[Rfam]
Description: A member of the RNA family "A. fumigatus sRNA Afu_254" from Aspergillus fumigatiaffinis, 164 nucleotides long.
RNA sequence: AUACCAAGCCUCAUACCAACUGAACAAUACAAGCUCAAACCUACCUUCAAGCAACCCUUCGUCCACCACCAACUCAAUCAAAAUGACUCCCUGCUCCUGCAACACCUGCGCCUGCUCCAGCGACUGCAACGGCUGCUCCUGCUCCUCUUGCGGUGUAUGUAUCU
Numbered sequence: 001a002u003a004c005c006a007a008g009c010c011u012c013a014u015a016c017c018a019a020c021u022g023a024a025c026a027a028u029a030c031a032a033g034c035u036c037a038a039a040c041c042u043a044c045c046u047u048c049a050a051g052c053a054a055c056c057c058u059u060c061g062u063c064c065a066c067c068a069c070c071a072a073c074u075c076a077a078u079c080a081a082a083a084u085g086a087c088u089c090c091c092u093g094c095u096c097c098u099g100c101a102a103c104a105c106c107u108g109c110g111c112c113u114g115c116u117c118c119a120g121c122g123a124c125u126g127c128a129a130c131g132g133c134u135g136c137u138c139c140u141g142c143u144c145c146u147c148u149u150g151c152g153g154u155g156u157a158u159g160u161a162u163c164u
Base pairs, nucleotide, nucleotide: 092122093121094120095119099115100114101113126151127150128149135142136141
By type it is a small RNA. The match comes from Rfam's covariance-model search (98 bits).